A member of the RNA family "mir-8799 microRNA precursor family" from Nyctereutes procyonoides, 90 nucleotides long. Rfam 15.1 lists 20,638 matches to the family in 5 species. The match comes from Rfam's covariance-model search (77 bits). Gene Ontology terms of the family: RISC complex and miRNA-mediated post-transcriptional gene silencing.

RNA sequence: GGGGGGAGGCCGGAUCCUGGGCUGUGUCCCGGCGGCCAGGGCUCCCUGGGCCUGCGCUGUAGGAUUCGCGCUCCCGCCCCGCAGCCCCCU
Numbered sequence: 001g002g003g004g005g006g007a008g009g010c011c012g013g014a015u016c017c018u019g020g021g022c023u024g025u026g027u028c029c030c031g032g033c034g035g036c037c038a039g040g041g042c043u044c045c046c047u048g049g050g051c052c053u054g055c056g057c058u059g060u061a062g063g064a065u066u067c068g069c070g071c072u073c074c075c076g077c078c079c080c081g082c083a084g085c086c087c088c089c090u
Stems, first nucleotide, its partner, number of pairs: 001090006009082002012078002017076001019074003023070004027064003030059005039052001041051003